[Rfam]
RNA: MIR396 microRNA precursor family
RNA sequence: CUACAUGCUUUUCCACGGCUUUCUUGAACUUAGUACUCAGGUCGGUUUCUCUCUCUCUCUCUCUCUCUCUCUAUGUCUCAAGCAAAUGAAAGCAAAGUACAUCGACCACAUCUCAGUACAAAGCUCAAGAAAGCUGUGGGAAAACAUGAAAA
Numbered sequence: 001c002u003a004c005a006u007g008c009u010u011u012u013c014c015a016c017g018g019c020u021u022u023c024u025u026g027a028a029c030u031u032a033g034u035a036c037u038c039a040g041g042u043c044g045g046u047u048u049c050u051c052u053c054u055c056u057c058u059c060u061c062u063c064u065c066u067c068u069c070u071c072u073a074u075g076u077c078u079c080a081a082g083c084a085a086a087u088g089a090a091a092g093c094a095a096a097g098u099a100c101a102u103c104g105a106c107c108a109c110a111u112c113u114c115a116g117u118a119c120a121a122a123g124c125u126c127a128a129g130a131a132a133g134c135u136g137u138g139g140g141a142a143a144a145c146a147u148g149a150a151a152a
Stems, first nucleotide, its partner, number of pairs: 004148004013139003017135006024128004029123003033119005